RNA sequence: AUAGCGGAUUCUGAAAAGCUUAUAGAGUAAGAA
Numbered sequence: 001a002u003a004g005c006g007g008a009u010u011c012u013g014a015a016a017a018g019c020u021u022a023u024a025g026a027g028u029a030a031g032a033a
Stems, first nucleotide, its partner, number of pairs: 003020003010032003
Source information
This 33-nucleotide sequence from Elizabethkingia meningoseptica belongs to the Rfam family "DUF805b RNA". It is annotated as a cis-regulatory element. The family's consensus secondary structure is taken from published work. Taxonomically the source falls in Elizabethkingia (Bacteria, Pseudomonadati, Flavobacteriia, Flavobacteriales).